[Rfam]
RNA sequence: UGCACUCACUACUGUAAGUCUCUCUGGAUAAGAGCAUCUGCUAAAUGACCCCUC
Dot-bracket structure: ............((((.....((((.....))))....))).)...........
RNA: UnaL2 LINE 3' element